Shown here is a 57-nucleotide sequence from Turnera subulata, a member of the family "Plastid-ndhJ 3UTR RNA". The family has 50 seed sequences and 869 matches in Rfam 15.1. About the family: Plastid ndhJ is a non-coding RNA (ncRNA) present in plastids. It was identified as a short stem-loop motif in the 3 prime untranslate region (3UTR) of ndhJ gene. The source organism's lineage runs through Eukaryota, Streptophyta, Tracheophyta, Passifloraceae and Turnera. Pairs were carried over by alignment from the consensus structure, which was predicted with LocARNA. A reference for the family is Richter et al. (2023), "Retrograde signaling in plants: A critical review focusing on the GUN pathway and beyond", Plant Commun. It is annotated as a cis-regulatory element.
[Rfam]
RNA sequence: UCAUAAACUUUGUACCGCGCACAUCCCUUAGAUGAGCUAUAGAAAAGAAAGUAAGAU
Numbered sequence: 001u002c003a004u005a006a007a008c009u010u011u012g013u014a015c016c017g018c019g020c021a022c023a024u025c026c027c028u029u030a031g032a033u034g035a036g037c038u039a040u041a042g043a044a045a046a047g048a049a050a051g052u053a054a055g056a057u
Base pairs, nucleotide, nucleotide: 019037020036022034023033024032025031